Fluoride riboswitch aptamer (crcB RNA motif): a 73-nucleotide sequence from Bittarella massiliensis.
Pairs were carried over by alignment from the consensus structure, which is taken from published work.
Its family is annotated with response to fluoride and positive regulation of gene expression in the Gene Ontology.
The match comes from Rfam's covariance-model search (42 bits).
NCBI's taxonomy places the organism under Bacteria, Bacillota, Clostridia, Oscillospiraceae, Bittarella (ex Durand et al. 2017).

RNA sequence: AGAAGAUUGGGGAAUGAAGUGCUCCCCCGGGCAACCGAAACCGCUUUUGUAAGCUGAUGACUUCUGUGAUUUU
Numbered sequence: 001a002g003a004a005g006a007u008u009g010g011g012g013a014a015u016g017a018a019g020u021g022c023u024c025c026c027c028c029g030g031g032c033a034a035c036c037g038a039a040a041c042c043g044c045u046u047u048u049g050u051a052a053g054c055u056g057a058u059g060a061c062u063u064c065u066g067u068g069a070u071u072u073u
Stems, first nucleotide, its partner, number of pairs: 010026004016064005043054004